[Rfam]
RNA sequence: GAUGCGGGCCGGGCCCCUCUGGCGACGUGGAUGUUUACCCCCUUGCAUCCCGUCGCGAUGUCGGACCGCAUCG
Numbered sequence: 001g002a003u004g005c006g007g008g009c010c011g012g013g014c015c016c017c018u019c020u021g022g023c024g025a026c027g028u029g030g031a032u033g034u035u036u037a038c039c040c041c042c043u044u045g046c047a048u049c050c051c052g053u054c055g056c057g058a059u060g061u062c063g064g065a066c067c068g069c070a071u072c073g
Base pairs, nucleotide, nucleotide: 006067007066009064010063011062012061022056023055024054025053026052027051029050030049031048032047033046034045

Annotation:
terC RNA: a 73-nucleotide RNA sequence from Sphingomonas sp. SKA58. By type it is a cis-regulatory element. Taxonomically the source falls in Sphingomonas (Bacteria, Pseudomonadati, Alphaproteobacteria, Sphingomonadaceae). The sequence is in the family's curated seed alignment. Rfam 15.1 lists 1,112 matches to the family in 772 species.